[Rfam]
RNA sequence: UCAGAAAAAGGCAAACCUAUUGAGAGGUAGGGACGCAAAGUUACAGGUCCGAUUAAUACUUAUGUAUUCGGAUGGCUGAGCUGCCUGAA
Numbered sequence: 001u002c003a004g005a006a007a008a009a010g011g012c013a014a015a016c017c018u019a020u021u022g023a024g025a026g027g028u029a030g031g032g033a034c035g036c037a038a039a040g041u042u043a044c045a046g047g048u049c050c051g052a053u054u055a056a057u058a059c060u061u062a063u064g065u066a067u068u069c070g071g072a073u074g075g076c077u078g079a080g081c082u083g084c085c086u087g088a089a
Base pairs, nucleotide, nucleotide: 001089003086004085011036012035016031017030018029019028020027021026034075039082040081041080042079044078045077046076047073048072049071050070051069052068
This 89-nucleotide RNA sequence from Gracilibacillus thailandensis belongs to the Rfam family "c-di-GMP-I-GGC riboswitch aptamer". The organism belongs to Gracilibacillus, within Bacteria. A search with the family's covariance model found it, with a score of 66 bits.